[Rfam]
RNA sequence: ACGUCUCUGUCUAACGGGGUGCGGUGCUGCUCUGUCGGCGCACCUCGAUUUCAGGAGACGGAGAUGA
Number, nucleotide and partner (000 for none) at each position: 001a000002c060003g059004u058005c057006u056007c055008u054009g000010u000011c000012u000013a000014a000015c047016g046017g045018g044019g043020u042021g041022c040023g039024g000025u000026g000027c000028u000029g000030c000031u000032c000033u000034g000035u000036c000037g000038g000039c023040g022041c021042a020043c019044c018045u017046c016047g015048a000049u000050u000051u000052c000053a000054g008055g007056a006057g005058a004059c003060g002061g000062a000063g000064a000065u000066g000067a000
RNA: Trypanosomatid snoRNA TB10Cs4H2